[Rfam]
RNA sequence: ACUCCUUGAUAACAUUUAGUCCCACAUCAGAAGUGGAAGCUAUUGAGAAUUUAAUAUCUCAUACAUGGGCCAUCGGCCCACCAUGAUAUUAAAUUAAUUUUUUUCCGGGCGCGGGACCACCAUGGUGGCUUGCCAUUGGGGCCCGCAAGCGUCGCCAAUGCGUUGCAGCUGCACGGUCCUGGCGCACCCCUA
Numbered sequence: 001a002c003u004c005c006u007u008g009a010u011a012a013c014a015u016u017u018a019g020u021c022c023c024a025c026a027u028c029a030g031a032a033g034u035g036g037a038a039g040c041u042a043u044u045g046a047g048a049a050u051u052u053a054a055u056a057u058c059u060c061a062u063a064c065a066u067g068g069g070c071c072a073u074c075g076g077c078c079c080a081c082c083a084u085g086a087u088a089u090u091a092a093a094u095u096a097a098u099u100u101u102u103u104u105c106c107g108g109g110c111g112c113g114g115g116a117c118c119a120c121c122a123u124g125g126u127g128g129c130u131u132g133c134c135a136u137u138g139g140g141g142c143c144c145g146c147a148a149g150c151g152u153c154g155c156c157a158a159u160g161c162g163u164u165g166c167a168g169c170u171g172c173a174c175g176g177u178c179c180u181g182g183c184g185c186a187c188c189c190c191u192a
Stems, first nucleotide, its partner, number of pairs: 007026002044063002047060002066080006111146005117140002125136004149185006156176001159173003
The family of this 192-nucleotide RNA sequence from Phoenix dactylifera is "U2 spliceosomal RNA".
Clan: U2 clan.
NCBI's taxonomy places the organism under Eukaryota, Streptophyta, commelinids, Coryphoideae, Phoenix.
The family's RNA type in Rfam is spliceosomal small nuclear RNA.
The literature on the family includes a 1997 paper in Nucleic Acids Res by Zwieb, "The uRNA database".